[Rfam]
Nucleotides: 122
Stems, first nucleotide, its partner, number of pairs: 002049005008043002016036002019030001056116001062114005073101006079094001081092003
Number, partner (000 for none) and nucleotide at each position: 001000u002049u003048g004047c005046c006045c007000a008043c009042u010000g011000g012000a013000g014000g015000c016036u017035g018000u019030c020000u021000g022000u023000g024000u025000c026000u027000c028000u029000a030019g031000u032000g033000g034000c035017c036016a037000u038000a039000a040000c041000a042009g043008g044000g045006g046005g047004g048003u049002a050000u051000a052000u053000u054000g055000a056116g057000c058000u059000g060000c061000u062114c063113u064112u065111g066110u067000u068000a069000a070000a071000a072000c073101c074100c075099a076098g077097g078096c079094c080000a081092g082091a083090g084000g085000u086000c087000a088000u089000u090083c091082u092081c093000u094079g095000a096078g097077u098076c099075u100074g101073g102000a103000u104000c105000c106000u107000g108000u109000c110066a111065c112064a113063a114062g115000g116056c117000a118000c119000a120000u121000g122000u

Rfam assigns this 122-nucleotide RNA from Danio rerio to the family "Small nucleolar RNA SNORA26". The match comes from Rfam's covariance-model search (53 bits). The family has 76 seed sequences and 1,943 matches in Rfam 15.1. Gene Ontology terms of the family: RNA processing and nucleolus. Clan: SNORA27 clan. About the family: The snoRNA HBI-6 belong to the H/ACA family of snoRNAs, guiding the pseudouridylation of position U4522 if the 28S rRNA. HBI-6 is the human orthologue of mouse MBI-6 snoRNA. On this family, see Huttenhofer et al., EMBO J 2001: "RNomics: an experimental approach that identifies 201 candidates for novel, small, non-messenger RNAs in mouse".